[Rfam]
RNA sequence: UGAGUCGGUCAGGCGGCCGCGUCGAGCCCUCCGGGGACUCGCCGAGGAACGUCCGGGCUCCACAGGGCACGGUGGUGGCUAACAGCCACCCGGGGUGACCCGCGGGACAGUGCCACAGAAAGUAGACCGCCUCCGGCUCCGGCCGGAGGUCAGGGUGAAAGGGUGGUGUAAGAGACCACCAGCGUGCCGGGUGACCGGCGCGGCUAGGUAAACCCCACCGGGAGCAAGGUCAGACAGCACGCGUUCGAGGGCGGCCCGCCCGAGCGUGCGGGUAGACCGCUAGAGGUGGCCGGCAACGGUCACCCGAGAUGGAUGGUCGCCACCGUCGCAGUGCCGGCAACGGCGCGGCGGGACAGGACCCGGCGUAUCGACCGACUCAUCCA
Numbered sequence: 001u002g003a004g005u006c007g008g009u010c011a012g013g014c015g016g017c018c019g020c021g022u023c024g025a026g027c028c029c030u031c032c033g034g035g036g037a038c039u040c041g042c043c044g045a046g047g048a049a050c051g052u053c054c055g056g057g058c059u060c061c062a063c064a065g066g067g068c069a070c071g072g073u074g075g076u077g078g079c080u081a082a083c084a085g086c087c088a089c090c091c092g093g094g095g096u097g098a099c100c101c102g103c104g105g106g107a108c109a110g111u112g113c114c115a116c117a118g119a120a121a122g123u124a125g126a127c128c129g130c131c132u133c134c135g136g137c138u139c140c141g142g143c144c145g146g147a148g149g150u151c152a153g154g155g156u157g158a159a160a161g162g163g164u165g166g167u168g169u170a171a172g173a174g175a176c177c178a179c180c181a182g183c184g185u186g187c188c189g190g191g192u193g194a195c196c197g198g199c200g201c202g203g204c205u206a207g208g209u210a211a212a213c214c215c216c217a218c219c220g221g222g223a224g225c226a227a228g229g230u231c232a233g234a235c236a237g238c239a240c241g242c243g244u245u246c247g248a249g250g251g252c253g254g255c256c257c258g259c260c261c262g263a264g265c266g267u268g269c270g271g272g273u274a275g276a277c278c279g280c281u282a283g284a285g286g287u288g289g290c291c292g293g294c295a296a297c298g299g300u301c302a303c304c305c306g307a308g309a310u311g312g313a314u315g316g317u318c319g320c321c322a323c324c325g326u327c328g329c330a331g332u333g334c335c336g337g338c339a340a341c342g343g344c345g346c347g348g349c350g351g352g353a354c355a356g357g358a359c360c361c362g363g364c365g366u367a368u369c370g371a372c373c374g375a376c377u378c379a380u381c382c383a
Stems, first nucleotide, its partner, number of pairs: 001379010011368001012321007020044002023041004028036001049366003053363005058224004065257004070220005075089005090104001091102004105215002110213002112209003127154002129150009162180006182204001183202008228278004237269006249261004285304008

About this RNA: This 383-nucleotide RNA sequence from Ornithinimicrobium ciconiae belongs to the Rfam family "Bacterial RNase P class A". The source organism's lineage runs through Bacteria, Bacillati, Actinomycetota, Actinomycetes and Ornithinimicrobium. Gene Ontology terms of the family: tRNA processing, dimeric ribonuclease P complex and ribonuclease P activity. It is annotated as a ribozyme.